[Rfam]
Shown here is a 125-nucleotide sequence from [Anoxybacillus] calidus, a member of the family "epsC RNA".
Nucleotides: 125
Stems, first nucleotide, its partner, number of pairs: 001019004007034007035108004039103008049077006080092004112124004
Number, partner (000 for none) and nucleotide at each position: 001019c002018g003017g004016a005000g006000a007034u008033g009032u010031c011030u012029c013028c014000u015000u016004u017003c018002c019001g020000u021000u022000a023000u024000c025000a026000a027000u028013g029012g030011a031010g032009g033008c034007a035108c036107u037106c038105g039103g040102u041101c042100a043099u044098g045097c046096c047000g048000u049077g050076g051075g052074u053073g054072a055000g056000g057000a058000c059000g060000a061000u062000g063000a064000c065000g066000g067000u068000c069000c070000g071000g072054u073053c074052a075051c076050c077049u078000u079000a080092g081091a082090c083089g084000c085000u086000u087000g088000u089083c090082g091081u092080c093000g094000a095000g096046g097045g098044u099043g100042u101041g102040g103039c104000g105038u106037g107036a108035g109000g110000g111000c112124g113123g114122g115121u116000u117000a118000g119000a120000u121115g122114c123113c124112c125000a
The source organism's lineage runs through Bacteria, Bacillati, Bacilli, Anoxybacillaceae and Paranoxybacillus.